[Rfam]
RNA sequence: ACACGAGAAGGGAGGUGGUCCAGGCUUUGUAUGCUCAUAGGACUCGUGAGGUGGCUGUCCGCUAGCCGGUCUCGUGGUCCUCACCUCUAGCCGGGUGGCCCAUGGGCACCGGCACCGGCGAGAACCAGGCAGACACCCGACCCCCGGGCGCCGUCGCAAGUCCCGACGGCCCGCCUCCGCUUCGCGCGGCGGCGGAGCGCCCGGGGGUCGUUCAGU
Dot-bracket structure: .............((((((..................................))))))((((.(..(.(........................................).).).)))).................(((((((((((((.((((((............................))))))......)))))))))))))......
A member of the RNA family "Actinobacteria sRNA Ms_IGR-5" from Frankia casuarinae, 216 nucleotides long. The base pairs follow the family's consensus structure. The organism belongs to Frankia, within Bacteria. It scores 88 bits against the family's covariance model. A reference for the family is Li et al. (2013), "Identification of small RNAs in Mycobacterium smegmatis using heterologous Hfq", RNA. It is annotated as a small RNA.